About this RNA
The record is a 129-nucleotide RNA sequence from Desulforamulus profundi, which matches "FMN riboswitch aptamer (RFN element)" in Rfam.

RNA sequence: CAGGACCUUCAGGGAUAGGUGUAAUUCCUUACCGGCGGUAUGGCCUGGGCCGAGCCCGCGAGCCCCCUAGGGGCAGAUCCGGUGAAAAGCCGGAGCCGACAGUGAAAGUCUGGAUGGGAGAAGGUAAGA
Numbered sequence: 001c002a003g004g005a006c007c008u009u010c011a012g013g014g015a016u017a018g019g020u021g022u023a024a025u026u027c028c029u030u031a032c033c034g035g036c037g038g039u040a041u042g043g044c045c046u047g048g049g050c051c052g053a054g055c056c057c058g059c060g061a062g063c064c065c066c067c068u069a070g071g072g073g074c075a076g077a078u079c080c081g082g083u084g085a086a087a088a089g090c091c092g093g094a095g096c097c098g099a100c101a102g103u104g105a106a107a108g109u110c111u112g113g114a115u116g117g118g119a120g121a122a123g124g125u126a127a128g129a
Stems, first nucleotide, its partner, number of pairs: 005125006017029003031109002033098002035059004054096002062074003078094005100112003
Dot-bracket structure: ....((((((......(((.......))).[[((((((...............[[))))..(((.......)))...(((((.......)))))]])).(((.....]]))).......))))))....

The source organism's lineage runs through Bacteria, Clostridia, Eubacteriales, Peptococcaceae and Desulforamulus.